RNA sequence: GCAUGGGGCUGCACUAAUGGCGGGCCCUUCUCUGUGGGCCUCUCACAGUGGACCCAUGCCAGAGAAGCGGGCAGCCCCAAACCAUUGCCCAACCUCCUCACUGGUGGGCUGUGAGCACUGAAGAGGGCUGUUGAGUG
Numbered sequence: 001g002c003a004u005g006g007g008g009c010u011g012c013a014c015u016a017a018u019g020g021c022g023g024g025c026c027c028u029u030c031u032c033u034g035u036g037g038g039c040c041u042c043u044c045a046c047a048g049u050g051g052a053c054c055c056a057u058g059c060c061a062g063a064g065a066a067g068c069g070g071g072c073a074g075c076c077c078c079a080a081a082c083c084a085u086u087g088c089c090c091a092a093c094c095u096c097c098u099c100a101c102u103g104g105u106g107g108g109c110u111g112u113g114a115g116c117a118c119u120g121a122a123g124a125g126g127g128c129u130g131u132u133g134a135g136u137g
Stems, first nucleotide, its partner, number of pairs: 001059004005054002015048001018045003022041003025037002072130006083120002088115001090111002093108003